[Rfam]
RNA: S15-Flavobacteria ribosomal protein leader
RNA sequence: UAUAUUUGUAGACUGAUUACGAUAGACGUAGUUAACGCAUAAAAAUUAUUUAAAUAAUAUUGGAAUG
Numbered sequence: 001u002a003u004a005u006u007u008g009u010a011g012a013c014u015g016a017u018u019a020c021g022a023u024a025g026a027c028g029u030a031g032u033u034a035a036c037g038c039a040u041a042a043a044a045a046u047u048a049u050u051u052a053a054a055u056a057a058u059a060u061u062g063g064a065a066u067g
Stems, first nucleotide, its partner, number of pairs: 014034006